[Rfam]
RNA: MIR8565 microRNA precursor family
RNA sequence: CCCACACCCAUGUAUGUAGGAUCCCAAAGGAUCACCAUUAAAUUUGACACAGAUCUCUAGAAAAGUUAUCACAUAAAUGUGGGACUUGACUUUUCUAGAGAUCUGUAUCAUAUUUAAUAGAGAUCCUUUGGGGUCCCAUAUAUAUGGGUGUGAG
Numbered sequence: 001c002c003c004a005c006a007c008c009c010a011u012g013u014a015u016g017u018a019g020g021a022u023c024c025c026a027a028a029g030g031a032u033c034a035c036c037a038u039u040a041a042a043u044u045u046g047a048c049a050c051a052g053a054u055c056u057c058u059a060g061a062a063a064a065g066u067u068a069u070c071a072c073a074u075a076a077a078u079g080u081g082g083g084a085c086u087u088g089a090c091u092u093u094u095c096u097a098g099a100g101a102u103c104u105g106u107a108u109c110a111u112a113u114u115u116a117a118u119a120g121a122g123a124u125c126c127u128u129u130g131g132g133g134u135c136c137c138a139u140a141u142a143u144a145u146g147g148g149u150g151u152g153a154g
Base pairs, nucleotide, nucleotide: 003152004151005150006149007148008147009146010145011144012143013142015140016139017138019136020135021134022133023132024131025130026129027128028127030125031124032123035120037118038117039116040115041114042113043112045110046109047108049106050105051104052103053102054101055100056099057098058097059096060095061094062093063092064091065090066089067088068087069082070081071080072079073078